The record is a 258-nucleotide sequence from Mola mola, which matches "RNase MRP" in Rfam.
A search with the family's covariance model found it, with a score of 144 bits.
Lineage of the source: Eukaryota > Craniata > Teleostei > Moloidei > Mola.
Rfam classes the family as a ribozyme.
RNase MRP is an enzymatically active ribonucleoprotein with two distinct roles in eukaryotes.
The family is grouped with related families in Rfam's "RNaseP clan".
Pairs were carried over by alignment from the consensus structure, which is taken from published work.
Rfam links the family to the GO terms ribonuclease MRP activity, ribonuclease MRP complex and rRNA processing.

Nucleotides: 258
Stems, first nucleotide, its partner, number of pairs: 003257006010250002014210006022065007037051005070243002073241004085097004098111005114182003121176001123174002130169003137165004147158004213226003
Number, partner (000 for none) and nucleotide at each position: 001000g002000g003257g004256c005255a006254u007253u008252c009000g010250g011249a012000a013000g014210g015209c016208u017207u018206g019205c020000a021000a022065u023064c024063u025062g026061g027060g028059c029000u030000a031000c032000a033000u034000a035000c036000g037051g038050a039049g040048a041047a042000c043000a044000u045000g046000u047041u048040u049039c050038u051037c052000g053000g054000u055000u056000u057000c058000c059028g060027c061026c062025c063024a064023g065022g066000g067000g068000a069000a070243a071242g072000u073241c074240c075239c076238c077000g078000g079000a080000c081000u082000c083000g084000a085097g086096g087095c088094a089000g090000a091000a092000a093000g094088u095087g096086c097085c098111c099110u100109g101108g102107a103000u104000g105000a106000u107102u108101c109100c110099a111098g112000c113000g114182u115181c116180a117000g118000c119000u120000c121176g122000c123174g124173c125000u126000u127000c128000g129000c130169c131168a132167c133000u134000c135000u136000g137165g138164a139163g140162c141000u142000g143000a144000g145000a146000c147158g148157u149156u150155c151000g152000c153000c154000c155150g156149g157148a158147c159000u160000g161000a162140g163139c164138u165137c166000g167132g168131u169130g170000a171000u172000c173124g174123c175000a176121c177000a178000g179000u180116u181115g182114a183000c184000u185000u186000u187000g188000u189000c190000a191000g192000c193000a194000c195000c196000u197000a198000c199000a200000g201000g202000a203000a204000u205019g206018c207017a208016a209015g210014u211000g212000a213226g214225c215224g216000a217000c218000a219000c220000g221000u222000a223000c224215c225214g226213c227000c228000g229000c230000a231000a232000c233000a234000g235000a236000a237000c238076g239075g240074g241073g242071c243070u244000c245000a246000u247000u248000c249011u250010c251000g252008g253007a254006a255005u256004g257003c258000a